[Rfam]
RNA: ZMP/ZTP riboswitch aptamer (pfl RNA motif)
RNA sequence: GGCGCCUCGCGCGACUGACGCUGAACGAUGGCGCUCCAUCGGGAAGCGCGAGGGUUACUGGCCGCGCGUCCGGACAUCCUUC
Numbered sequence: 001g002g003c004g005c006c007u008c009g010c011g012c013g014a015c016u017g018a019c020g021c022u023g024a025a026c027g028a029u030g031g032c033g034c035u036c037c038a039u040c041g042g043g044a045a046g047c048g049c050g051a052g053g054g055u056u057a058c059u060g061g062c063c064g065c066g067c068g069u070c071c072g073g074a075c076a077u078c079c080u081u082c
Base pairs, nucleotide, nucleotide: 005053006052007051008050009049010048011047012046015043016042017070018069019068020067021066028039029038030037031036061075063073